mir-726 microRNA precursor family: a 91-nucleotide RNA sequence from Xenopus tropicalis. Pairs were carried over by alignment from the consensus structure, which was predicted with RNAalifold. The family has 2 seed sequences and 131 matches in Rfam 15.1.

RNA sequence: GUGGGUGCUUGUCAGGAAUUCCGCUAGUUCUGAACUAUUCCAUGUUAGUAAGUAAAAGUUCACUACUAGCAGAACUCGGCCACGUACCACA
Numbered sequence: 001g002u003g004g005g006u007g008c009u010u011g012u013c014a015g016g017a018a019u020u021c022c023g024c025u026a027g028u029u030c031u032g033a034a035c036u037a038u039u040c041c042a043u044g045u046u047a048g049u050a051a052g053u054a055a056a057a058g059u060u061c062a063c064u065a066c067u068a069g070c071a072g073a074a075c076u077c078g079g080c081c082a083c084g085u086a087c088c089a090c091a
Stems, first nucleotide, its partner, number of pairs: 004088005010082002013079001015077002019074003023070006031062006038056002
Dot-bracket structure: ...(((((.((.(.((..(((.((((((..((((((.((...............))))))))..)))))).))).)).).)).)))))...